[Rfam]
RNA sequence: UGAGAUGAAAUCAAUGUUUGGACAUACAAUUUCACGCUGUUUUCAUCUCAUG
Number, nucleotide and partner (000 for none) at each position: 001u050002g049003a048004g047005a046006u045007g044008a043009a042010a041011u000012c039013a038014a000015u036016g035017u034018u029019u028020g027021g000022a000023c000024a000025u000026a000027c020028a019029a018030u000031u000032u000033c000034a017035c016036g015037c000038u013039g012040u000041u010042u009043u008044c007045a006046u005047c004048u003049c002050a001051u000052g000
Overview:
Rfam assigns this 52-nucleotide sequence from Solanum commersonii to the family "MIR1886 microRNA precursor family". Taxonomically the source falls in Solanum (Eukaryota, Euphyllophyta, Mesangiospermae, Solanaceae).